[Rfam]
Description
Rfam assigns this 156-nucleotide sequence to the family "DUF2800 RNA". Pairs were carried over by alignment from the consensus structure, which is taken from published work. It is annotated as a cis-regulatory element. It is one of the family's seed sequences.
RNA sequence: CCUCCAUAAACUGCACUGACUGAUCAACGGUGGCUCAACGGUUUAUGGCGGACAAGUCAAUACUGUAGCUGCCUUUUGAGCGGGUUUGCUGCAAUCCGAAACGGAGGUUUCCGUUAGGACUGCGGUUGGUUUCUUAUACCCUUUUUCGGCAGCACC
Number, nucleotide and partner (000 for none) at each position: 001c051002c050003u000004c048005c047006a000007u045008a044009a043010a042011c041012u040013g039014c032015a031016c030017u029018g028019a000020c000021u000022g000023a000024u000025c000026a000027a000028c018029g017030g016031u015032g014033g081034c080035u079036c078037a077038a076039c013040g012041g011042u010043u009044u008045a007046u000047g005048g004049c000050g002051g001052a000053c000054a000055a000056g000057u000058c000059a000060a000061u000062a000063c000064u000065g000066u152067a000068g150069c149070u148071g147072c000073c000074u000075u000076u038077u037078g036079a035080g034081c033082g000083g000084g000085u000086u000087u000088g126089c125090u124091g123092c122093a000094a000095u000096c000097c000098g000099a000100a000101a114102c113103g112104g111105a110106g000107g000108u000109u000110u105111c104112c103113g102114u101115u000116a000117g000118g000119a000120c000121u000122g092123c091124g090125g089126u088127u000128g000129g000130u000131u000132u000133c000134u000135u000136a000137u000138a000139c000140c000141c000142u000143u000144u000145u000146u000147c071148g070149g069150c068151a000152g066153c000154a000155c000156c000